[Rfam]
RNA: Guanidine-II riboswitch aptamer (mini-ykkC)
Organism: Oncorhynchus kisutch
RNA sequence: AUCUGGGGACGACCCCGGUCGGUUUCUAACAUGAUAUCUGGGGACGACCCCG
Numbered sequence: 001a002u003c004u005g006g007g008g009a010c011g012a013c014c015c016c017g018g019u020c021g022g023u024u025u026c027u028a029a030c031a032u033g034a035u036a037u038c039u040g041g042g043g044a045c046g047a048c049c050c051c052g
Stems, first nucleotide, its partner, number of pairs: 003018006039052005